[Rfam]
RNA sequence: AAUGGCACCCUAUUCCCUACAUAGUGUGCUACUAUGGGCCCUGGUCAAAAGUAGUGCACUAUAUAAGGAAUAGGGUGCUGUUU
Numbered sequence: 001a002a003u004g005g006c007a008c009c010c011u012a013u014u015c016c017c018u019a020c021a022u023a024g025u026g027u028g029c030u031a032c033u034a035u036g037g038g039c040c041c042u043g044g045u046c047a048a049a050a051g052u053a054g055u056g057c058a059c060u061a062u063a064u065a066a067g068g069a070a071u072a073g074g075g076u077g078c079u080g081u082u083u
Stems, first nucleotide, its partner, number of pairs: 001083002005078006012071005018065002022061009
mir-130 microRNA precursor family: an 83-nucleotide sequence from Coregonus sp. 'balchen'. The family has 9 seed sequences and 2,580 matches in Rfam 15.1. On this family, see Houbaviy et al., Dev Cell 2003: "Embryonic stem cell-specific MicroRNAs". Pairs were carried over by alignment from the consensus structure, which was predicted with PFOLD. It scores 47 bits against the family's covariance model.